[Rfam]
RNA: mir-8517 microRNA precursor family
Organism: Plutella xylostella
RNA sequence: UUAUUUUUAGCUAUUGAACUGUUUUGUCACUCUCUGUCAAAGAACAAAUUGUUCUCUGUCAGAAAGUGACAAAACAGUUCAAUAGUUAAAACGACAAU
Numbered sequence: 001u002u003a004u005u006u007u008u009a010g011c012u013a014u015u016g017a018a019c020u021g022u023u024u025u026g027u028c029a030c031u032c033u034c035u036g037u038c039a040a041a042g043a044a045c046a047a048a049u050u051g052u053u054c055u056c057u058g059u060c061a062g063a064a065a066g067u068g069a070c071a072a073a074a075c076a077g078u079u080c081a082a083u084a085g086u087u088a089a090a091a092c093g094a095c096a097a098u
Base pairs, nucleotide, nucleotide: 005091006090007089008088009087010086011085012084013083014082015081016080017079018078019077020076021075022074023063024062025061026060028058029057043053044052045051046050